[Rfam]
RNA sequence: GGCCGGGUGGAGAGGCGUAAUACAAUACCCGCAAGGGGAAUAUGCCCGGAGUUUCGUAUAAGGCUCUAGUUGACACCCGGCUACCAUCGA
Number, nucleotide and partner (000 for none) at each position: 001g082002g081003c080004c079005g078006g077007g076008u075009g074010g000011a000012g000013a000014g046015g045016c044017g000018u042019a041020a000021u000022a000023c000024a000025a000026u000027a000028c037029c036030c035031g000032c000033a000034a000035g030036g029037g028038g000039a000040a000041u019042a018043u000044g016045c015046c014047c000048g067049g066050a065051g064052u063053u062054u000055c000056g000057u000058a000059u000060a000061a000062g053063g052064c051065u050066c049067u048068a000069g000070u000071u000072g000073a000074c009075a008076c007077c006078c005079g004080g003081c002082u001083a000084c000085c000086a000087u000088c000089g000090a000

A member of the RNA family "sRNA-Xcc1" from Sodalis sp. TME1, 90 nucleotides long.
The family's consensus secondary structure was predicted with RNAalifold.
It is annotated as a small RNA.
Taxonomically the source falls in Sodalis (Bacteria, Pseudomonadati, Gammaproteobacteria, Enterobacterales).
It scores 62 bits against the family's covariance model.